[Rfam]
The record is a 69-nucleotide sequence from Pueribacillus theae, which matches "Bacillaceae-1 RNA" in Rfam.
RNA sequence: AAGCCAGAAUAGUUAGAAUUAAGAACGCCACAUUGUGUAGCAACGUCUGCAUGACCCACUUCCUGUGGG
Number, nucleotide and partner (000 for none) at each position: 001a000002a000003g000004c000005c000006a000007g000008a000009a000010u000011a000012g050013u049014u000015a048016g047017a000018a046019u045020u000021a000022a000023g000024a000025a000026c000027g041028c040029c000030a038031c037032a000033u000034u000035g000036u000037g031038u030039a000040g028041c027042a000043a000044c000045g019046u018047c016048u015049g013050c012051a000052u000053g000054a000055c069056c068057c067058a066059c065060u000061u000062c000063c000064u000065g059066u058067g057068g056069g055